[Rfam]
This 84-nucleotide RNA sequence from Caenorhabditis latens belongs to the Rfam family "SmY spliceosomal RNA". It scores 44 bits against the family's covariance model.

RNA sequence: CAUCAAACUACAAUACUUUCAGGCCUUUCUUAAGACCUCAAGUACUAUUUUUUAGGAAUCCAUGUCUAUUAUUCAGGCAGGAUG
Numbered sequence: 001c002a003u004c005a006a007a008c009u010a011c012a013a014u015a016c017u018u019u020c021a022g023g024c025c026u027u028u029c030u031u032a033a034g035a036c037c038u039c040a041a042g043u044a045c046u047a048u049u050u051u052u053u054a055g056g057a058a059u060c061c062a063u064g065u066c067u068a069u070u071a072u073u074c075a076g077g078c079a080g081g082a083u084g
Stems, first nucleotide, its partner, number of pairs: 021038003025034003058083004063079005

About this RNA
It is annotated as a spliceosomal small nuclear RNA. Lineage of the source: Eukaryota > Protostomia > Chromadorea > Rhabditoidea > Caenorhabditis. For this family Rfam cites "A novel family of C. elegans snRNPs contains proteins associated with trans-splicing" (MacMorris et al., RNA, 2007).